[Rfam]
RNA sequence: CCAUAAGUUUUCUAGGGUUCCGCGGCGCUAACGCCGGUCCGGUCCGAGAGAAAACGCAUGGCGCGGCCAUGUUCACGGAGGGAUAAAAGCCCGGGAGGA
Numbered sequence: 001c002c003a004u005a006a007g008u009u010u011u012c013u014a015g016g017g018u019u020c021c022g023c024g025g026c027g028c029u030a031a032c033g034c035c036g037g038u039c040c041g042g043u044c045c046g047a048g049a050g051a052a053a054a055c056g057c058a059u060g061g062c063g064c065g066g067c068c069a070u071g072u073u074c075a076c077g078g079a080g081g082g083a084u085a086a087a088a089g090c091c092c093g094g095g096a097g098g099a
Base pairs, nucleotide, nucleotide: 007055008054009053010052011051012050015045016044020042021041022039023036024035025034026033027032056072057071058070059069060068061067062066074094076097080092081091082090